[Rfam]
Nucleotides: 115
Stems, first nucleotide, its partner, number of pairs: 006104002009101002011065004017034005043057006071096003077090004
Number, partner (000 for none) and nucleotide at each position: 001000c002000g003000c004000c005000a006104u007103u008000c009101a010100c011065a012064g013063g014062g015000g016000a017034g018033c019032u020031c021030c022000g023000u024000a025000u026000u027000g028000c029000c030021g031020g032019g033018g034017c035000u036000g037000a038000g039000a040000u041000g042000u043057g044056a045055g046054g047053c048052g049000c050000c051000a052048u053047g054046c055045c056044u057043c058000u059000g060000g061000a062014c063013c064012c065011u066000u067000c068000a069000a070000a071096g072095c073094u074000g075000a076000u077090c078089u079088g080087g081000g082000u083000a084000a085000u086000g087080c088079c089078a090077g091000c092000g093000g094073a095072g096071c097000g098000a099000g100010g101009u102000a103007a104006a105000a106000a107000u108000g109000u110000a111000u112000u113000c114000c115000g
Description: A member of the RNA family "TPP riboswitch aptamer (THI element)" from Rhizobium sp. BK376, 115 nucleotides long. NCBI's taxonomy places the organism under Bacteria, Alphaproteobacteria, Hyphomicrobiales, Rhizobiaceae, Rhizobium. Its family is annotated with thiamine pyrophosphate binding in the Gene Ontology. It scores 59 bits against the family's covariance model.